A member of the RNA family "Small nucleolar RNA snoR31/Z110/Z27" from Jatropha curcas, 101 nucleotides long. The literature on the family includes a 2003 paper in Nucleic Acids Res by Chen et al., "The high diversity of snoRNAs in plants: identification and comparative study of 120 snoRNA genes from Oryza sativa". The family's consensus secondary structure was predicted with PFOLD. A search with the family's covariance model found it, with a score of 49 bits. NCBI's taxonomy places the organism under Eukaryota, Tracheophyta, Euphorbiaceae, Jatropheae, Jatropha. About the family: This family contains several related snoRNAs including R31, Z27 and Z110. The family's RNA type in Rfam is C/D-box small nucleolar RNA. The family has 8 seed sequences and 571 matches in Rfam 15.1.
RNA sequence: UCCAUUAAAGAUGAUAAUGAUGAAACUCAAAAAUCUUAGGACACCUUCUGACACAGUUUUACGCUGUGCAUGAGAAUAAGAUUUUCGUUUCUGAUAUUCGA
Numbered sequence: 001u002c003c004a005u006u007a008a009a010g011a012u013g014a015u016a017a018u019g020a021u022g023a024a025a026c027u028c029a030a031a032a033a034u035c036u037u038a039g040g041a042c043a044c045c046u047u048c049u050g051a052c053a054c055a056g057u058u059u060u061a062c063g064c065u066g067u068g069c070a071u072g073a074g075a076a077u078a079a080g081a082u083u084u085u086c087g088u089u090u091c092u093g094a095u096a097u098u099c100g101a
Stems, first nucleotide, its partner, number of pairs: 001101002004098001006096002049055002